[Rfam]
RNA sequence: CAUGCACAGCAAACCCAAAGGUCUCUCCUCACGUGUGGAGCGGCUGAAUUUGCGGUGCAAAUAUUAAAACAUUGAAUCUUGUCGCCUUUCUCUGAUGCUGUAGUGCCGUUGAAAGUGAACUCAAGGUUCAACACGC
Numbered sequence: 001c002a003u004g005c006a007c008a009g010c011a012a013a014c015c016c017a018a019a020g021g022u023c024u025c026u027c028c029u030c031a032c033g034u035g036u037g038g039a040g041c042g043g044c045u046g047a048a049u050u051u052g053c054g055g056u057g058c059a060a061a062u063a064u065u066a067a068a069a070c071a072u073u074g075a076a077u078c079u080u081g082u083c084g085c086c087u088u089u090c091u092c093u094g095a096u097g098c099u100g101u102a103g104u105g106c107c108g109u110u111g112a113a114a115g116u117g118a119a120c121u122c123a124a125g126g127u128u129c130a131a132c133a134c135g136c
Base pairs, nucleotide, nucleotide: 003059004058005057006056007055009053020045021044022043023042025040026039027038028037074129075128076127077126078125079124080123086115087114088113089112090111093108094107

Background: A member of the RNA family "Small nucleolar RNA SNORA68" from Merluccius polli, 136 nucleotides long. Pairs were carried over by alignment from the consensus structure, which was predicted with PFOLD. U68 is a member of the H/ACA class of small nucleolar RNAs (snoRNAs) which act as guides in the the modification of uridines to pseudouridines. Rfam 15.1 lists 1,079 matches to the family in 643 species.